[Rfam]
RNA sequence: AAAAAACAACCAGGGAGCCUUAGGGCUGAGAGGAAGUCUGACUUCGACCUGUAUUACCUGAUUUGGAUUAUGCCAACGUAGGGAGUUUAUACCAGCAUUUA
Numbered sequence: 001a002a003a004a005a006a007c008a009a010c011c012a013g014g015g016a017g018c019c020u021u022a023g024g025g026c027u028g029a030g031a032g033g034a035a036g037u038c039u040g041a042c043u044u045c046g047a048c049c050u051g052u053a054u055u056a057c058c059u060g061a062u063u064u065g066g067a068u069u070a071u072g073c074c075a076a077c078g079u080a081g082g083g084a085g086u087u088u089a090u091a092c093c094a095g096c097a098u099u100u101a
Stems, first nucleotide, its partner, number of pairs: 008087003011051004017026003033045005057082004063076004
A member of the RNA family "TPP riboswitch aptamer (THI element)" from Lachnospiraceae bacterium CAG:364, 101 nucleotides long. Lineage of the source: Bacteria > Bacillati > Clostridia > Lachnospirales > Lachnospiraceae. The base pairs follow the family's consensus structure, which is taken from published work.